[Rfam]
RNA sequence: CAGUUAAGCUAGGGGUGUUUGGACUGUCCAAGCUGAGAGAUACCCUUAGAACCUGAGACUGGGUAAUACCAGCGUAGGGAAGCUGUCUAUAGAGGAA
Numbered sequence: 001c002a003g004u005u006a007a008g009c010u011a012g013g014g015g016u017g018u019u020u021g022g023a024c025u026g027u028c029c030a031a032g033c034u035g036a037g038a039g040a041u042a043c044c045c046u047u048a049g050a051a052c053c054u055g056a057g058a059c060u061g062g063g064u065a066a067u068a069c070c071a072g073c074g075u076a077g078g079g080a081a082g083c084u085g086u087c088u089a090u091a092g093a094g095g096a097a
Stems, first nucleotide, its partner, number of pairs: 007084004011046004016040001017033005052078004059072004
RNA: TPP riboswitch aptamer (THI element)